Background: The family of this 104-nucleotide RNA sequence from Flavobacterium noncentrifugens is "Flavo-1 RNA". The family's RNA type in Rfam is small RNA. Rfam 15.1 lists 7,497 matches to the family in 411 species.
RNA sequence: GUUUUGCGUUAAGGAUAGCAGUGGAAAUCUUUUUUGCUUUUCGGAUGUUUCUUUUUUAGAAAAAGCUGAUGGCAAAAAGAUUGAAACGGAUAGCCUGGCCCGCA
Numbered sequence: 001g002u003u004u005u006g007c008g009u010u011a012a013g014g015a016u017a018g019c020a021g022u023g024g025a026a027a028u029c030u031u032u033u034u035u036g037c038u039u040u041u042c043g044g045a046u047g048u049u050u051c052u053u054u055u056u057u058a059g060a061a062a063a064a065g066c067u068g069a070u071g072g073c074a075a076a077a078a079g080a081u082u083g084a085a086a087c088g089g090a091u092a093g094c095c096u097g098g099c100c101c102g103c104a
Stems, first nucleotide, its partner, number of pairs: 012096003016092002021087002026082004032077007